Record summary:
This 158-nucleotide RNA from Listeria welshimeri belongs to the Rfam family "Listeria sRNA rli22".

RNA sequence: AGGACUGAGGGAUAUGCUUAGAAUGAGAAAAAUACUCGAAAAAAACAACCAAUCAAGAAUGAAGAUAAUAGGUUUUUCUUUAACGUUCGCGCAUAAUAAUUCCGCGUCUUUUCAAGGUUACGUUCGUUAAAAGUUAGGUCCUUCAAUCUUUCUUGAUU
Numbered sequence: 001a002g003g004a005c006u007g008a009g010g011g012a013u014a015u016g017c018u019u020a021g022a023a024u025g026a027g028a029a030a031a032a033u034a035c036u037c038g039a040a041a042a043a044a045a046c047a048a049c050c051a052a053u054c055a056a057g058a059a060u061g062a063a064g065a066u067a068a069u070a071g072g073u074u075u076u077u078c079u080u081u082a083a084c085g086u087u088c089g090c091g092c093a094u095a096a097u098a099a100u101u102c103c104g105c106g107u108c109u110u111u112u113c114a115a116g117g118u119u120a121c122g123u124u125c126g127u128u129a130a131a132a133g134u135u136a137g138g139u140c141c142u143u144c145a146a147u148c149u150u151u152c153u154u155g156a157u158u
Stems, first nucleotide, its partner, number of pairs: 001150004006145008014094004021088005038054002061081005108133005116125002

The family's RNA type in Rfam is small RNA. Pairs were carried over by alignment from the consensus structure, which was predicted with RNAalifold. The sequence is in the family's curated seed alignment.